[Rfam]
RNA: FMN riboswitch aptamer (RFN element)
Organism: Treponema primitia
RNA sequence: UAAGAUUUUCAGGGUCGGGUGAUUGAAGGCGACUUCAUGAUUCCCAACCGGCGGUAUAGCCCGCGAAUCGGGGGUAAAAAACCCCAGAUCGAACCGGUGAGAUUCCGGUGCCGACGGUAUAGUCCGGAUGGAAGAAAAUCUCG
Dot-bracket structure: ..((((((((......(((.......................))).[[((((((....[[))))..(((.................)))...(((((.......)))))]])).(((....]]))).......))))))))..